[Rfam]
RNA sequence: CUGGGAUGAUGAAAUUUAGCCAAAUCAGACGUUUGCUCCUUGAGGCAAUUUAUUUUGGGCUUGUUCCGAAUGUUUUUUGUAGAGACACUCUGGUGAUCUUUGCUAAGCACUUGAUCAAGCUCCAGA
Numbered sequence: 001c002u003g004g005g006a007u008g009a010u011g012a013a014a015u016u017u018a019g020c021c022a023a024a025u026c027a028g029a030c031g032u033u034u035g036c037u038c039c040u041u042g043a044g045g046c047a048a049u050u051u052a053u054u055u056u057g058g059g060c061u062u063g064u065u066c067c068g069a070a071u072g073u074u075u076u077u078u079g080u081a082g083a084g085a086c087a088c089u090c091u092g093g094u095g096a097u098c099u100u101u102g103c104u105a106a107g108c109a110c111u112u113g114a115u116c117a118a119g120c121u122c123c124a125g126a
Stems, first nucleotide, its partner, number of pairs: 001125004
This 126-nucleotide RNA sequence from Thalictrum thalictroides belongs to the Rfam family "small nucleolar RNA snoR127".
The family's RNA type in Rfam is C/D-box small nucleolar RNA.
It scores 53 bits against the family's covariance model.
The family's consensus secondary structure was predicted with RNAalifold.
Rfam links the family to the GO terms RNA processing and nucleolus.